Annotation: The family of this 67-nucleotide RNA from Solibacillus sp. R5-41 is "Bacillaceae-1 RNA". It is annotated as a small RNA. The base pairs follow the family's consensus structure, which is taken from published work.
[Rfam]
RNA sequence: GAAUAGGGUAUUCAAGCUAAGAACACCGCAUCGUGCAGCACCGCCUGAGUGACCAACAUCGUGUUGG
Numbered sequence: 001g002a003a004u005a006g007g008g009u010a011u012u013c014a015a016g017c018u019a020a021g022a023a024c025a026c027c028g029c030a031u032c033g034u035g036c037a038g039c040a041c042c043g044c045c046u047g048a049g050u051g052a053c054c055a056a057c058a059u060c061g062u063g064u065u066g067g
Stems, first nucleotide, its partner, number of pairs: 011049004016044002026038001028036002053067005